[Rfam]
RNA: c-di-GMP-I riboswitch aptamer
Organism: Candidatus Accumulibacter aalborgensis
RNA sequence: CGAGAUCAAAGGCAAACGGAGUGCAAGCUCCGGACGCAAAGCUUCAGACCCUAACCUGAAGUCCAGGAGGGUGGCUGGGUUCCCUCA
Numbered sequence: 001c002g003a004g005a006u007c008a009a010a011g012g013c014a015a016a017c018g019g020a021g022u023g024c025a026a027g028c029u030c031c032g033g034a035c036g037c038a039a040a041g042c043u044u045c046a047g048a049c050c051c052u053a054a055c056c057u058g059a060a061g062u063c064c065a066g067g068a069g070g071g072u073g074g075c076u077g078g079g080u081u082c083c084c085u086c087a
Stems, first nucleotide, its partner, number of pairs: 012037002017032006040081004045077003048072003055067004